Shown here is a 94-nucleotide RNA from Monodelphis domestica, a member of the family "Small nucleolar RNA SNORD91 family". Lineage of the source: Eukaryota > Opisthokonta > Vertebrata > Amniota > Monodelphis. For this family Rfam cites "RNomics: an experimental approach that identifies 201 candidates for novel, small, non-messenger RNAs in mouse" (Huttenhofer et al., EMBO J, 2001). The family has 24 seed sequences and 977 matches in Rfam 15.1.
RNA sequence: UGGAGAAGCCAAUGAUGGUUUUGCCAGAAUGUCUGAACCUGUCUGAAGCAUCUUAGUGAUGCUACAUCCAUAUGGCUCUGAGGCCUCUUUCUCU
Numbered sequence: 001u002g003g004a005g006a007a008g009c010c011a012a013u014g015a016u017g018g019u020u021u022u023g024c025c026a027g028a029a030u031g032u033c034u035g036a037a038c039c040u041g042u043c044u045g046a047a048g049c050a051u052c053u054u055a056g057u058g059a060u061g062c063u064a065c066a067u068c069c070a071u072a073u074g075g076c077u078c079u080g081a082g083g084c085c086u087c088u089u090u091c092u093c094u
Base pairs, nucleotide, nucleotide: 004088005087006086008084009083010082